Description:
The family of this 71-nucleotide sequence from Notothenia coriiceps is "miR-430 microRNA precursor family". A search with the family's covariance model found it, with a score of 52 bits. The family has 32 seed sequences and 24,817 matches in Rfam 15.1. The source organism's lineage runs through Eukaryota, Eumetazoa, Euteleostomi, Acanthomorphata and Notothenia. The family's consensus secondary structure was predicted with RNAalifold.
[Rfam]
RNA sequence: AUUAUUACCUUUACAAAAAACACUAACUUUGUUUGACACUUGCAGUAAGUGCUUUUGUUGGGGUCGUUUUG
Numbered sequence: 001a002u003u004a005u006u007a008c009c010u011u012u013a014c015a016a017a018a019a020a021c022a023c024u025a026a027c028u029u030u031g032u033u034u035g036a037c038a039c040u041u042g043c044a045g046u047a048a049g050u051g052c053u054u055u056u057g058u059u060g061g062g063g064u065c066g067u068u069u070u071g
Base pairs, nucleotide, nucleotide: 004067005066007064008063009062010061011060013058014057015056016055017054019053021051022050023049024048026046027045028044